[Rfam]
RNA sequence: UUUGGGAAAUGAUGCCAAAGAUUGAAACAGAGGCGCCAGCGCUGCUGAAUUACUAUUUGCACGUCAGUCUGAUCCCAAA
Numbered sequence: 001u002u003u004g005g006g007a008a009a010u011g012a013u014g015c016c017a018a019a020g021a022u023u024g025a026a027a028c029a030g031a032g033g034c035g036c037c038a039g040c041g042c043u044g045c046u047g048a049a050u051u052a053c054u055a056u057u058u059g060c061a062c063g064u065c066a067g068u069c070u071g072a073u074c075c076c077a078a079a
Stems, first nucleotide, its partner, number of pairs: 001079007
RNA: Small nucleolar RNA Z122
Organism: Glycine max